Notes
Rfam assigns this 153-nucleotide sequence from Paracoccus sanguinis to the family "Ruegeria cis2 sRNA". A reference for the family is Rivers et al. (2016), "Experimental Identification of Small Non-Coding RNAs in the Model Marine Bacterium Ruegeria pomeroyi DSS-3", Front Microbiol.
RNA sequence: AUUGGAAUUGCGCGGCACGUAAUUGAUGAAAACGAAACCGCGGGUCUGGUCGAUGAUGUGGAACAGGGGAUUCCAGUCGAACAUCGACAGCAGGAAUGUCGGCAUCGUGUUGGCCACGAACAUCUUGCCCGAGGCGAUCAUGUUCACCCGCCG
Numbered sequence: 001a002u003u004g005g006a007a008u009u010g011c012g013c014g015g016c017a018c019g020u021a022a023u024u025g026a027u028g029a030a031a032a033c034g035a036a037a038c039c040g041c042g043g044g045u046c047u048g049g050u051c052g053a054u055g056a057u058g059u060g061g062a063a064c065a066g067g068g069g070a071u072u073c074c075a076g077u078c079g080a081a082c083a084u085c086g087a088c089a090g091c092a093g094g095a096a097u098g099u100c101g102g103c104a105u106c107g108u109g110u111u112g113g114c115c116a117c118g119a120a121c122a123u124c125u126u127g128c129c130c131g132a133g134g135c136g137a138u139c140a141u142g143u144u145c146a147c148c149c150g151c152c153g
Stems, first nucleotide, its partner, number of pairs: 002035003008030002013025003037057001039055002041052003064153001066151001068149001071081003086147001089144004094139001099133001100131003103127002107123002110119003
Dot-bracket structure: .(((...((...(((.......)))...))..))).(.(((((......))).)).)......(.(.(..(((.....)))....(..((((.(....((((((..((.(((....)))..))..)).))).).....).))))..).).).)